RNA sequence: AGUAUGUCCAGUCUAAUUCUGCGUCAUGUCAUUGGAUAUUGACGCAGACUCGCUUUUGGACGAUAGCAACGAUAAAUGUCUUUUAUUAUCCUUGUGCCACAUGUAUAACACUCAUUUGGCACACGAGAAACGUAAAAGAACAAUU
Numbered sequence: 001a002g003u004a005u006g007u008c009c010a011g012u013c014u015a016a017u018u019c020u021g022c023g024u025c026a027u028g029u030c031a032u033u034g035g036a037u038a039u040u041g042a043c044g045c046a047g048a049c050u051c052g053c054u055u056u057u058g059g060a061c062g063a064u065a066g067c068a069a070c071g072a073u074a075a076a077u078g079u080c081u082u083u084u085a086u087u088a089u090c091c092u093u094g095u096g097c098c099a100c101a102u103g104u105a106u107a108a109c110a111c112u113c114a115u116u117u118g119g120c121a122c123a124c125g126a127g128a129a130a131c132g133u134a135a136a137a138g139a140a141c142a143a144u145u
Stems, first nucleotide, its partner, number of pairs: 005062006019047008027038004079139008091127006